Annotation
The family of this 89-nucleotide RNA sequence from Albula glossodonta is "mir-146 microRNA precursor family". NCBI's taxonomy places the organism under Eukaryota, Deuterostomia, Euteleostomi, Elopocephala, Albula. For this family Rfam cites "Identification of tissue-specific microRNAs from mouse" (Lagos-Quintana et al., Curr Biol, 2002). The base pairs follow the family's consensus structure, which was predicted with WAR. Its family is annotated with miRNA-mediated post-transcriptional gene silencing and RISC complex in the Gene Ontology.
RNA sequence: AUGAGUUCUCGGCUUUGAGAACUGAAUUCCAAGGGUUGUGGCCUCAGACUCAGCCCGUGGAUUUCAGUUCUUCAGCCUGGUGCUCCCUG
Numbered sequence: 001a002u003g004a005g006u007u008c009u010c011g012g013c014u015u016u017g018a019g020a021a022c023u024g025a026a027u028u029c030c031a032a033g034g035g036u037u038g039u040g041g042c043c044u045c046a047g048a049c050u051c052a053g054c055c056c057g058u059g060g061a062u063u064u065c066a067g068u069u070c071u072u073c074a075g076c077c078u079g080g081u082g083c084u085c086c087c088u089g
Stems, first nucleotide, its partner, number of pairs: 008080002011077003018071008033056004